mir-1180 microRNA precursor family: a 68-nucleotide sequence from Nyctereutes procyonoides. The source organism's lineage runs through Eukaryota, Sarcopterygii, Dipnotetrapodomorpha, Canidae and Nyctereutes.
RNA sequence: UCUGCCGGGCCCACCCAGCCAGGAAUGUGCACCUAGAUUGUUUCCAGCUCGAGUGGGUGCGCUGGAGG
Numbered sequence: 001u002c003u004g005c006c007g008g009g010c011c012c013a014c015c016c017a018g019c020c021a022g023g024a025a026u027g028u029g030c031a032c033c034u035a036g037a038u039u040g041u042u043u044c045c046a047g048c049u050c051g052a053g054u055g056g057g058u059g060c061g062c063u064g065g066a067g068g
Stems, first nucleotide, its partner, number of pairs: 001066004006061002009058006016051001018048002022044005027038001030036001